[Rfam]
RNA sequence: AAAUAAAAAACCCUGCAGCCAAAUGGAUGCAGGGUCCUUCUAUAUCCUCCGUAAAAAGGAUAGAAGGCAAAGGGAGAGGAGAAACCGGAGGAAGAACUUAUGGGGAAACGUAAGUCUUCUCCGCGG
Numbered sequence: 001a002a003a004u005a006a007a008a009a010a011c012c013c014u015g016c017a018g019c020c021a022a023a024u025g026g027a028u029g030c031a032g033g034g035u036c037c038u039u040c041u042a043u044a045u046c047c048u049c050c051g052u053a054a055a056a057a058g059g060a061u062a063g064a065a066g067g068c069a070a071a072g073g074g075a076g077a078g079g080a081g082a083a084a085c086c087g088g089a090g091g092a093a094g095a096a097c098u099u100a101u102g103g104g105g106a107a108a109c110g111u112a113a114g115u116c117u118u119c120u121c122c123g124c125g126g
Stems, first nucleotide, its partner, number of pairs: 011034007019026001035074005044061005086123004091119004096115005
Dot-bracket structure: ..........(((((((.(......).)))))))(((((....(((((........)))))........)))))...........((((.((((.(((((..........)))))))))))))...
RNA: ylbH leader